[Rfam]
RNA sequence: UACGAUGAUGCGGGAGAGAUCGGGCGGGCUUCGGCCUGCCCGGCGCCGACGGAGCAACCGCCCCGGAAACUCUCAGGCACAGAAACCGCAUCGUCAGG
Number, nucleotide and partner (000 for none) at each position: 001u000002a000003c000004g000005a000006u093007g092008a091009u090010g089011c088012g087013g086014g000015a000016g000017a000018g000019a000020u043021c042022g041023g040024g039025c038026g037027g036028g035029c034030u000031u000032c000033g000034g029035c028036c027037u026038g025039c024040c023041c022042g021043g020044c000045g078046c077047c076048g074049a073050c000051g000052g072053a071054g070055c000056a000057a000058c066059c065060g000061c000062c000063c000064c000065g059066g058067a000068a000069a000070c054071u053072c052073u049074c048075a000076g047077g046078c045079a000080c000081a000082g000083a000084a000085a000086c013087c012088g011089c010090a009091u008092c007093g006094u000095c000096a000097g000098g000
Glycine riboswitch aptamer: a 98-nucleotide RNA sequence from Enterovirga rhinocerotis. About the family: This family represents the bacterial glycine riboswitch. Gene Ontology term of the family: glycine biosynthetic process. For this family Rfam cites "A glycine-dependent riboswitch that uses cooperative binding to control gene expression" (Mandal et al., Science, 2004). NCBI's taxonomy places the organism under Bacteria, Pseudomonadota, Alphaproteobacteria, Hyphomicrobiales, Enterovirga.